[Rfam]
RNA sequence: GCCGGGGGACGGAUGAAUAAAACACCCGCAAGGGGAAUAGUCCGGCCUGUCCUAGUCAGGUUGUCAGCCCCCGGCGCCAGGGU
Numbered sequence: 001g002c003c004g005g006g007g008g009a010c011g012g013a014u015g016a017a018u019a020a021a022a023c024a025c026c027c028g029c030a031a032g033g034g035g036a037a038u039a040g041u042c043c044g045g046c047c048u049g050u051c052c053u054a055g056u057c058a059g060g061u062u063g064u065c066a067g068c069c070c071c072c073g074g075c076g077c078c079a080g081g082g083u
Base pairs, nucleotide, nucleotide: 001075002074003073004072005071006070007069008068010044011043012042013041016038025034026033027032045061046060047059048058049057
RNA: sRNA-Xcc1